[Rfam]
RNA sequence: CCGUUUACUUCAUUGGGGAGUAGCCUCUCUGUUUCCAGAGGUUUGCGUCAACAUGCUUGGCAUUCGCCAUGGCGCAAACGGUUUGUACAAAACUUGGCAAGACCUUUGAUUAUCGCGCUUUCCAUAUUGGCCGGAGAAGUGCGGUAGUCAUUCGUCUUUUUCCGGCCAAGGUGUAUUU
Number, nucleotide and partner (000 for none) at each position: 001c000002c000003g000004u000005u000006u000007a000008c000009u000010u000011c000012a000013u000014u000015g000016g000017g000018g000019a000020g000021u000022a000023g000024c000025c000026u000027c000028u039029c038030u037031g000032u000033u000034u000035c000036c000037a030038g029039a028040g000041g079042u078043u077044u076045g075046c074047g073048u072049c071050a070051a000052c000053a000054u000055g000056c000057u000058u069059g068060g067061c066062a000063u000064u000065c000066g061067c060068c059069a058070u050071g049072g048073c047074g046075c045076a044077a043078a042079c041080g177081g176082u175083u000084u173085g172086u171087a000088c000089a000090a000091a000092a000093c000094u000095u000096g000097g000098c000099a000100a000101g000102a000103c000104c000105u000106u000107u000108g000109a000110u000111u000112a000113u000114c000115g000116c000117g000118c000119u000120u000121u000122c000123c000124a000125u000126a000127u000128u000129g000130g000131c000132c000133g000134g000135a000136g000137a000138a000139g000140u000141g000142c000143g000144g000145u000146a000147g000148u000149c000150a000151u000152u000153c000154g000155u000156c000157u000158u000159u000160u000161u000162c000163c000164g000165g000166c000167c000168a000169a000170g000171g086172u085173g084174u000175a082176u081177u080178u000
The record is a 178-nucleotide RNA sequence from Advenella faeciporci, which matches "Manganese Mn2+ riboswitch aptamer (yybP-ykoY)" in Rfam. From the family's description: This RNA was originally discovered in E. coli during a large scale screen and was named SraF. The family was later found to exist upstream of related families of protein genes in many bacteria, including the the yybP and ykoK genes in B. subtilis. The specific functions of these proteins are unknown, but this structured RNA element may be involved in their genetic regulation as a riboswitch. Taxonomically the source falls in Advenella (Bacteria, Pseudomonadota, Burkholderiales, Alcaligenaceae). The family has 29 seed sequences and 1,126 matches in Rfam 15.1.